Rfam assigns this 214-nucleotide RNA sequence from Azotobacter vinelandii to the family "sucA-II RNA". Rfam's curators put it in the seed alignment. The family's consensus secondary structure is taken from published work. NCBI's taxonomy places the organism under Bacteria, Pseudomonadati, Pseudomonadota, Gammaproteobacteria, Azotobacter vinelandii.
RNA sequence: CUGCGGCGUCGGAAGCGAUUCCGGCGUCGUAGCCAAAGAUGGAUCCGCAGCUCAUGAAGCCGCGCUCCUAUGAAGAAUUUGACUAGCAGGGGCAUCCGGGCAACGCUCGGACUAUCUGUGGGAUCCGUAGUGGCUUUACCAAAGUCGCUGCUCCAUGACUUUGGAACGACCAUGUGCGGCUCGCGCCGAUGGUAUCCCCUCAAGAGGGUGACCA
Numbered sequence: 001c002u003g004c005g006g007c008g009u010c011g012g013a014a015g016c017g018a019u020u021c022c023g024g025c026g027u028c029g030u031a032g033c034c035a036a037a038g039a040u041g042g043a044u045c046c047g048c049a050g051c052u053c054a055u056g057a058a059g060c061c062g063c064g065c066u067c068c069u070a071u072g073a074a075g076a077a078u079u080u081g082a083c084u085a086g087c088a089g090g091g092g093c094a095u096c097c098g099g100g101c102a103a104c105g106c107u108c109g110g111a112c113u114a115u116c117u118g119u120g121g122g123a124u125c126c127g128u129a130g131u132g133g134c135u136u137u138a139c140c141a142a143a144g145u146c147g148c149u150g151c152u153c154c155a156u157g158a159c160u161u162u163g164g165a166a167c168g169a170c171c172a173u174g175u176g177c178g179g180c181u182c183g184c185g186c187c188g189a190u191g192g193u194a195u196c197c198c199c200u201c202a203a204g205a206g207g208g209u210g211a212c213c214a
Base pairs, nucleotide, nucleotide: 001032002031003030004029005028006027007026008025009024010023011022012021013020046064047063050060051059052058088200089199090198091197092196094193095111096110097109098108099107100106112192113191114190115189116188118186119185120184122182123181125179126178130175131174132171133170134168136166139164143160144159145158146157147156
Dot-bracket structure: (((((((((((((......))))))))))))).............((..(((.....)))..)).......................(((((.(((((((.....))))))(((((.(((.((.((...(((((.(..(...(((((........)))))...).).).))..))..)).)).))).))))))..)))))..............